Small nucleolar RNA Z43: a 99-nucleotide RNA from Solanum tuberosum. Rfam links the family to the GO terms nucleolus and RNA processing. Lineage of the source: Eukaryota > Solanales > Solanaceae > Solaneae > Solanum. A search with the family's covariance model found it, with a score of 92 bits. By type it is a C/D-box small nucleolar RNA. For this family Rfam cites "The high diversity of snoRNAs in plants: identification and comparative study of 120 snoRNA genes from Oryza sativa" (Chen et al., Nucleic Acids Res, 2003).
[Rfam]
RNA sequence: GGACUAUGACGACUUAUAUCUAUUGGUCUCGUUCGUCGUAAUGGUGUUUAAACCACCUUGCCGACCAUUCUGAUAUAUCACCACCCAUAAACUGAGUCC
Numbered sequence: 001g002g003a004c005u006a007u008g009a010c011g012a013c014u015u016a017u018a019u020c021u022a023u024u025g026g027u028c029u030c031g032u033u034c035g036u037c038g039u040a041a042u043g044g045u046g047u048u049u050a051a052a053c054c055a056c057c058u059u060g061c062c063g064a065c066c067a068u069u070c071u072g073a074u075a076u077a078u079c080a081c082c083a084c085c086c087a088u089a090a091a092c093u094g095a096g097u098c099c
Base pairs, nucleotide, nucleotide: 001099002098003097004096046054